[Rfam]
This 213-nucleotide RNA sequence from Oscillibacter sp. 1-3 belongs to the Rfam family "Group II catalytic intron D1-D4-5". Its family is annotated with Group II intron splicing in the Gene Ontology. On this family, see Bonen and Vogel, Trends Genet 2001: "The ins and outs of group II introns". Group II introns are found in rRNA, tRNA and mRNA of organelles in fungi, plants and protists, and also in mRNA in bacteria. It scores 142 bits against the family's covariance model. NCBI's taxonomy places the organism under Bacteria, Bacillati, Bacillota, Eubacteriales, Oscillibacter.

RNA sequence: AAUAACUGAUACUGCAAUAGGUGGAAUGAAGGAGUAACGCCCUGAAACGCCUACCCUGAAAACUACGGCUGGCGUUGGCUGGAAACGGCCAGGGUCAGGAGCCCGUUAAAGACGGCUGACUGCGUUCGCUCUGCGCGUGGUAAACAAUGGAAACAGCGGCAGUUGCAAAGCAAGCCAGAGGUGGCUGUGAGCGUUAGGCCGGGGGUCUAUAAA
Dot-bracket structure: .................((((((.......((.(.....).))....))))))((((.......(((((((((.(((((((....))))))).)))))....))))......(((((....((((((((...................................))...(((.((((....)))))))))))))..)))))))))........